[Rfam]
RNA sequence: AGGUCACUUCAAAGAGGGUUUGUGUGGCAACAAAACCAGCAGCUCUUAACGCGGUGACCGCAUAGCAAAAUCCUCUGCAGGAUGCCGUAGACACAUGGUGUGUGCUAUGGUCUAUUUAUGAGGAGAUACA
Numbered sequence: 001a002g003g004u005c006a007c008u009u010c011a012a013a014g015a016g017g018g019u020u021u022g023u024g025u026g027g028c029a030a031c032a033a034a035a036c037c038a039g040c041a042g043c044u045c046u047u048a049a050c051g052c053g054g055u056g057a058c059c060g061c062a063u064a065g066c067a068a069a070a071u072c073c074u075c076u077g078c079a080g081g082a083u084g085c086c087g088u089a090g091a092c093a094c095a096u097g098g099u100g101u102g103u104g105c106u107a108u109g110g111u112c113u114a115u116u117u118a119u120g121a122g123g124a125g126a127u128a129c130a
Stems, first nucleotide, its partner, number of pairs: 002059006014047007023039001026037002072123004079116002082113001087108004092104004
RNA: Small nucleolar RNA SNORA25